[Rfam]
RNA: RNase MRP
RNA sequence: GGAUUAUGAGGCGAUGUGAUUGGGCCCAUGCUAAUUGCUGGGCUCAGGAAAGUCCCCGGGCCUUCUCUGCAGCAAUGCAGGCCCUGUAAUGGGUAUCUUAGAGUUGGGAUUUGGGGCUGAGACACGUGUGGAGCCUAUGCAAUUCCCACCUGAGAAUUUGGCCGAUUCACAGUCAUUCACAUGGUCAACUUGACUAACCGAACGGGGCUUACGCCCUCGUAAUC
Dot-bracket structure: .((((((((((..((((((.(((((((............)))))))...[[[.[[[[..........((((....)))).((((......)))).(((...((.(((...(((((((......(....)...))))...)))...))).)).))).....................)))))).((((...)))).........]]]]]]]....))))))))))